[Rfam]
RNA sequence: GGGAGUAGGCUUCCCGAAAUCGGCUUGCAGGAGCAGAAAUCAAACCGCCCGGUGCGGCUGCGUUCAAAAGACGUGGUCGUGAGCGACUGUGGAAAAGGCAUCAUGAAGAUGUCAGGU
Numbered sequence: 001g002g003g004a005g006u007a008g009g010c011u012u013c014c015c016g017a018a019a020u021c022g023g024c025u026u027g028c029a030g031g032a033g034c035a036g037a038a039a040u041c042a043a044a045c046c047g048c049c050c051g052g053u054g055c056g057g058c059u060g061c062g063u064u065c066a067a068a069a070g071a072c073g074u075g076g077u078c079g080u081g082a083g084c085g086a087c088u089g090u091g092g093a094a095a096a097g098g099c100a101u102c103a104u105g106a107a108g109a110u111g112u113c114a115g116g117u
Stems, first nucleotide, its partner, number of pairs: 001015005016041002020037002023034004046116001048092002050089004054080002057077003061073004097113006
This 117-nucleotide RNA from Linnemannia gamsii belongs to the Rfam family "Group II catalytic intron D1-D4-2".
Pairs were carried over by alignment from the consensus structure.
The organism belongs to Linnemannia, within Eukaryota.
Rfam describes the family as follows. Group II introns are found in rRNA, tRNA and mRNA of organelles in fungi, plants and protists, and also in mRNA in bacteria.
The literature on the family includes a 2001 paper in Trends Genet by Bonen and Vogel, "The ins and outs of group II introns".
Rfam links the family to the GO term Group II intron splicing.
It scores 98 bits against the family's covariance model.